[Rfam]
RNA sequence: UGCACAAGUGAUGAACAGUAAAGGGACUUAAUUCUGAAACCUGAUGUGGUACUGUGAUAUCUGAUGUGC
Numbered sequence: 001u002g003c004a005c006a007a008g009u010g011a012u013g014a015a016c017a018g019u020a021a022a023g024g025g026a027c028u029u030a031a032u033u034c035u036g037a038a039a040c041c042u043g044a045u046g047u048g049g050u051a052c053u054g055u056g057a058u059a060u061c062u063g064a065u066g067u068g069c
Base pairs, nucleotide, nucleotide: 002069003068004067005066006065
Source information
This 69-nucleotide RNA sequence belongs to the Rfam family "Small nucleolar RNA SNORD82". About the family: snoRNA U82 or Z25 is found in both humans and mice. A reference for the family is Galardi et al. (2002), "Purified box C/D snoRNPs are able to reproduce site-specific 2'-O-methylation of target RNA in vitro", Mol Cell Biol. Rfam's curators put it in the seed alignment.